Rfam assigns this 61-nucleotide RNA from Pyrobaculum neutrophilum to the family "Pyrobaculum sRNA 206".
Nucleotides: 061
Stems, first nucleotide, its partner, number of pairs: 003042003006036002013026005
Number, partner (000 for none) and nucleotide at each position: 001000c002000g003042g004041c005040g006036g007035c008000g009000g010000a011000g012000a013026g014025c015024c016023c017022c018000g019000c020000g021000c022017g023016g024015g025014g026013c027000g028000c029000c030000g031000u032000g033000a034000a035007g036006c037000u038000a039000c040005c041004g042003c043000a044000g045000u046000c047000g048000g049000u050000c051000c052000c053000c054000c055000u056000u057000g058000u059000a060000c061000a
For this family Rfam cites "Discovery of Pyrobaculum small RNA families with atypical pseudouridine guide RNA features" (Bernick et al., RNA, 2012). Non canonical pseudouridylation guide sRNA features. Predicted to target 23S U1902 in Pyrobaculum. Its family is annotated with RNA processing in the Gene Ontology.